[Rfam]
RNA sequence: UUGGCGAUGAUGAUUGGCGCAGGGGUACGUACCUCAGCCAAUAAUGGGGGCUGAGUGUUGGCACCUUCUGUUAGUGGGCAUGUGGCCGGCUGAUGGGGUUGGGUACCAACACGAAACAGACGCCUAAAUCUGAGCCCG
Numbered sequence: 001u002u003g004g005c006g007a008u009g010a011u012g013a014u015u016g017g018c019g020c021a022g023g024g025g026u027a028c029g030u031a032c033c034u035c036a037g038c039c040a041a042u043a044a045u046g047g048g049g050g051c052u053g054a055g056u057g058u059u060g061g062c063a064c065c066u067u068c069u070g071u072u073a074g075u076g077g078g079c080a081u082g083u084g085g086c087c088g089g090c091u092g093a094u095g096g097g098g099u100u101g102g103g104u105a106c107c108a109a110c111a112c113g114a115a116a117c118a119g120a121c122g123c124c125u126a127a128a129u130c131u132g133a134g135c136c137c138g
Base pairs, nucleotide, nucleotide: 001138003136004135005134

Overview: Rfam assigns this 138-nucleotide RNA from Anguilla anguilla to the family "Small nucleolar RNA SNORD94". Lineage of the source: Eukaryota > Metazoa > Gnathostomata > Teleostomi > Anguilla. On this family, see Vitali et al., Nucleic Acids Res 2003: "Identification of 13 novel human modification guide RNAs". Gene Ontology terms of the family: nucleolus and RNA processing.